Shown here is a 170-nucleotide RNA from Equus caballus, a member of the family "FGF-1 internal ribosome entry site (IRES)".
This family represents the FGF-1 internal ribosome entry site (IRES).
Taxonomically the source falls in Equus (Eukaryota, Deuterostomia, Vertebrata, Mammalia).
For this family Rfam cites "Internal Ribosome Entry Site Structural Motifs Conserved among Mammalian Fibroblast Growth Factor 1 Alternatively Spliced mRNAs" (Martineau et al., Mol Cell Biol, 2004).
Pairs were carried over by alignment from the consensus structure, which is taken from published work.
Gene Ontology term of the family: ribosome binding.

RNA sequence: GACUCCAGGGGAAUAAGGGCAUUGCCUCCUUUUGUGGAAGGACACGCCCUUCUGAUGGAGAAUGGGAACUCCCUCCUGCAGCAGCCUGCCUGCAGCGGUCUGGGUAGGACAGCGUGGAUGCUGUAGGCUGAUGCAGCUGCCGUCGCCCCAGAAAGACAGUGCCCCACAGC
Numbered sequence: 001g002a003c004u005c006c007a008g009g010g011g012a013a014u015a016a017g018g019g020c021a022u023u024g025c026c027u028c029c030u031u032u033u034g035u036g037g038a039a040g041g042a043c044a045c046g047c048c049c050u051u052c053u054g055a056u057g058g059a060g061a062a063u064g065g066g067a068a069c070u071c072c073c074u075c076c077u078g079c080a081g082c083a084g085c086c087u088g089c090c091u092g093c094a095g096c097g098g099u100c101u102g103g104g105u106a107g108g109a110c111a112g113c114g115u116g117g118a119u120g121c122u123g124u125a126g127g128c129u130g131a132u133g134c135a136g137c138u139g140c141c142g143u144c145g146c147c148c149c150a151g152a153a154a155g156a157c158a159g160u161g162c163c164c165c166a167c168a169g170c
Base pairs, nucleotide, nucleotide: 003169004168008165009164010163011162014156016050017049018048019047025041026040027039029037030036051152052151053150058079060076062074064073065072066071081143082139083138084137085136090133093130094129095128096127
Dot-bracket structure: ..((...((((..(.((((.....(((.((.....)).))).....))))(((....(.(.(.(((....)))).)..).(((((....(..((((..............................))))..)..))))...)......)))...).....))))..)).